[Rfam]
RNA sequence: GGGGAUGAUCGGUUUCGACAUCGCCUGCGAAACUGCGAGAAGCGGGCCGAGGAUGCAGGGUUAUCUCGUUAACGAUCUCUGCAAAACAUAGGUGCCAACGUUAAGCGCACCGACCUCGCUCUUGCUGCGUAAGUAAGAGUCUGAAGGUCCGUCAGGCCGGGUGAUGCCUCCGACCCGGUUCUGGCGUUAUCUAGGAGGCUUGCUGCGACGUCACGCCUGAGGGCGUCGUGGGACUUGCACUCGGGCUGGGCUCGUCGACCUGGGUGCCUGUGACAAAGGUCGGAGCCGAGUAGAACGCUUCCAUAGGCUACGCCCGUAGAAGGCGCAGGCUCACAGCGAUGGACGGGGGUUCGAUUCCCCCCAUCUCCACCA
Numbered sequence: 001g002g003g004g005a006u007g008a009u010c011g012g013u014u015u016c017g018a019c020a021u022c023g024c025c026u027g028c029g030a031a032a033c034u035g036c037g038a039g040a041a042g043c044g045g046g047c048c049g050a051g052g053a054u055g056c057a058g059g060g061u062u063a064u065c066u067c068g069u070u071a072a073c074g075a076u077c078u079c080u081g082c083a084a085a086a087c088a089u090a091g092g093u094g095c096c097a098a099c100g101u102u103a104a105g106c107g108c109a110c111c112g113a114c115c116u117c118g119c120u121c122u123u124g125c126u127g128c129g130u131a132a133g134u135a136a137g138a139g140u141c142u143g144a145a146g147g148u149c150c151g152u153c154a155g156g157c158c159g160g161g162u163g164a165u166g167c168c169u170c171c172g173a174c175c176c177g178g179u180u181c182u183g184g185c186g187u188u189a190u191c192u193a194g195g196a197g198g199c200u201u202g203c204u205g206c207g208a209c210g211u212c213a214c215g216c217c218u219g220a221g222g223g224c225g226u227c228g229u230g231g232g233a234c235u236u237g238c239a240c241u242c243g244g245g246c247u248g249g250g251c252u253c254g255u256c257g258a259c260c261u262g263g264g265u266g267c268c269u270g271u272g273a274c275a276a277a278g279g280u281c282g283g284a285g286c287c288g289a290g291u292a293g294a295a296c297g298c299u300u301c302c303a304u305a306g307g308c309u310a311c312g313c314c315c316g317u318a319g320a321a322g323g324c325g326c327a328g329g330c331u332c333a334c335a336g337c338g339a340u341g342g343a344c345g346g347g348g349g350u351u352c353g354a355u356u357c358c359c360c361c362c363a364u365c366u367c368c369a370c371c372a
Stems, first nucleotide, its partner, number of pairs: 001368007019341005025336003033328005043316005048068005054083007122139002126135003150186006157178006166199006203231009215247001217245002249287005256282003261275002266308004270302001272300001345361005
RNA: transfer-messenger RNA